[Rfam]
RNA: mir-574 microRNA precursor family
Organism: Myotis brandtii
RNA sequence: AGGCCCAAAGACAGAGGCAGGGUCUGAUCUGCAGCUUCACUAGCAGCUGUUGAUCAGCUGUUCCCUCUCUCUUUCUCUCUG
Numbered sequence: 001a002g003g004c005c006c007a008a009a010g011a012c013a014g015a016g017g018c019a020g021g022g023u024c025u026g027a028u029c030u031g032c033a034g035c036u037u038c039a040c041u042a043g044c045a046g047c048u049g050u051u052g053a054u055c056a057g058c059u060g061u062u063c064c065c066u067c068u069c070u071c072u073u074u075c076u077c078u079c080u081g
Stems, first nucleotide, its partner, number of pairs: 008073004013068005019062002022059001024057006032049004